[Rfam]
RNA sequence: GUAUUUUGAAGUAGAGAAUGUGCUGCUACGCACCCUUGUGGUUAAAAGAGAUGUGGGAAUGGGCACACCCACCAAAAUAC
Dot-bracket structure: ((((((((..((((.....[[[[[.)))).((((.....))).....)....(((((....]]]]].)))))))))))))
Shown here is an 80-nucleotide sequence, a member of the family "skipping-rope RNA".
The family's RNA type in Rfam is small RNA.
The base pairs follow the family's consensus structure, which is taken from published work.